The record is a 117-nucleotide RNA from Polaribacter aquimarinus, which matches "Bacteroidete tryptophan peptide leader RNA" in Rfam. The organism belongs to Polaribacter, within Bacteria.
[Rfam]
RNA sequence: UACCUUAUUUUUGUCGUGUAAUGAAAUUAAAUACAAAUAAUACAUGGUGGUGGAACUCUCUUAAACAAUAAGUGAGAAGAAAACCUAUAUGUAAACAAUAUAAAGAAAAGGCUUAUC
Number, nucleotide and partner (000 for none) at each position: 001u000002a000003c000004c000005u000006u000007a000008u000009u000010u000011u000012u000013g000014u000015c000016g000017u000018g000019u000020a000021a000022u000023g000024a000025a000026a000027u000028u000029a000030a000031a000032u000033a000034c000035a000036a000037a000038u000039a000040a000041u093042a092043c091044a090045u089046g088047g000048u000049g085050g084051u083052g000053g000054a000055a000056c079057u078058c076059u075060c074061u071062u070063a069064a000065a000066c000067a000068a000069u063070a062071a061072g000073u000074g060075a059076g058077a000078a057079g056080a000081a000082a000083a051084c050085c049086u000087a000088u046089a045090u044091g043092u042093a041094a000095a000096c000097a000098a000099u000100a000101u000102a000103a000104a000105g000106a000107a000108a000109a000110g000111g000112c000113u000114u000115a000116u000117c000